[Rfam]
RNA sequence: UUUCCAACAUCGCUGAGUUUCCGCAAGGGAAACGGGGGAACCACAUCACGGCAGAUCGGCUUGGUCGAUUCCGGGAUGUUUUUUUAGGGGUGAAUCCUUGGUGUGCAUGAUAUUUAAUGUGCGCGCUGGGGUAGGGCGACUCUCAAGUCCGAAUCCGUCAGCUAACCUCGUAAGCGUCCAGAGAGAGGUAAC
Numbered sequence: 001u002u003u004c005c006a007a008c009a010u011c012g013c014u015g016a017g018u019u020u021c022c023g024c025a026a027g028g029g030a031a032a033c034g035g036g037g038g039a040a041c042c043a044c045a046u047c048a049c050g051g052c053a054g055a056u057c058g059g060c061u062u063g064g065u066c067g068a069u070u071c072c073g074g075g076a077u078g079u080u081u082u083u084u085u086a087g088g089g090g091u092g093a094a095u096c097c098u099u100g101g102u103g104u105g106c107a108u109g110a111u112a113u114u115u116a117a118u119g120u121g122c123g124c125g126c127u128g129g130g131g132u133a134g135g136g137c138g139a140c141u142c143u144c145a146a147g148u149c150c151g152a153a154u155c156c157g158u159c160a161g162c163u164a165a166c167c168u169c170g171u172a173a174g175c176g177u178c179c180a181g182a183g184a185g186a187g188g189u190a191a192c
Stems, first nucleotide, its partner, number of pairs: 011176004018031003032171006042087001088156003096131014134150004
The record is a 192-nucleotide RNA sequence from Paenibacillus sp. UNCCL117, which matches "c-di-AMP riboswitch aptamer (ydaO/yuaA leader)" in Rfam. Taxonomically the source falls in Paenibacillus (Bacteria, Bacilli, Caryophanales, Paenibacillaceae).